Rfam assigns this 353-nucleotide sequence from Gallionella capsiferriformans to the family "Bacterial RNase P class A". By type it is a ribozyme. Taxonomically the source falls in Gallionella capsiferriformans (Bacteria, Pseudomonadota, Betaproteobacteria, Gallionellaceae).

RNA sequence: GAAGCUGGCCAGACAGUCGCCGCGCACCUUGGGUGCGGGGAGGAAAGUCCGGGCUCCAGAGAGCAGAAUGCCGGUUAACGGCCGGACACCGUGAGGUGAUGGAAAGUGCCACAGAAAAUAUACCGCCGAUGGCUGCGUAAGCAGCACAGGUAAGGGCGAAAUGGCGAGGUAAGAGCUCACCGCGCUGGUGGCAACAUCAGUGGCAGGGUAAACCCCAUUCGGAGCAAGAUCAAAUAGGCUGACUAUGACGUGGCUCGCGUCGUCAGCGGGUAGAUUGCUUGAGCGUCAGGUAACGAAACGCCUAGAGGAAUGACUGUCCACGACAGAACCCGGCUUAUCGGCCAGCUUCACCU
Numbered sequence: 001g002a003a004g005c006u007g008g009c010c011a012g013a014c015a016g017u018c019g020c021c022g023c024g025c026a027c028c029u030u031g032g033g034u035g036c037g038g039g040g041a042g043g044a045a046a047g048u049c050c051g052g053g054c055u056c057c058a059g060a061g062a063g064c065a066g067a068a069u070g071c072c073g074g075u076u077a078a079c080g081g082c083c084g085g086a087c088a089c090c091g092u093g094a095g096g097u098g099a100u101g102g103a104a105a106g107u108g109c110c111a112c113a114g115a116a117a118a119u120a121u122a123c124c125g126c127c128g129a130u131g132g133c134u135g136c137g138u139a140a141g142c143a144g145c146a147c148a149g150g151u152a153a154g155g156g157c158g159a160a161a162u163g164g165c166g167a168g169g170u171a172a173g174a175g176c177u178c179a180c181c182g183c184g185c186u187g188g189u190g191g192c193a194a195c196a197u198c199a200g201u202g203g204c205a206g207g208g209u210a211a212a213c214c215c216c217a218u219u220c221g222g223a224g225c226a227a228g229a230u231c232a233a234a235u236a237g238g239c240u241g242a243c244u245a246u247g248a249c250g251u252g253g254c255u256c257g258c259g260u261c262g263u264c265a266g267c268g269g270g271u272a273g274a275u276u277g278c279u280u281g282a283g284c285g286u287c288a289g290g291u292a293a294c295g296a297a298a299c300g301c302c303u304a305g306a307g308g309a310a311u312g313a314c315u316g317u318c319c320a321c322g323a324c325a326g327a328a329c330c331c332g333g334c335u336u337a338u339c340g341g342c343c344a345g346c347u348u349c350a351c352c353u
Base pairs, nucleotide, nucleotide: 001349002348003347004346005345006344007343008342009341010340011338012318013317014316015315016314017313018312020040021039023037024036025035026034027033028032045336046335047334049333050332051331052330053329054224055223056222057221061256062255063254064253066220067219068218069217070216071085072084073083074082075081086100087098088097089096090095101215102214106213107212108209109208110207123155124154125151126150127149132145133144134143135142136141163181164180166178167177168176182204183202184201185200186199187198188197189196190195228276229275230274231273238267239266240265241264242263243262247261248260249259250258251257283301284300285299286298289294
Dot-bracket structure: ((((((((((((((((((.((.((((((...)))))).))....[[[.[[[[[((((...[[[[.((((((((((.....)))))(((((....)))).)((...(((((............(((((....(((((....)))))...)))..)).......((.(((.......))).))(((((((((....)))))))).)..)))..)))))))))))))...((((......((((((...(((((.]]]]))))))))))).....))))......((((..(....)...))))..........)))))))..........]]]]]]]].).))))))))))....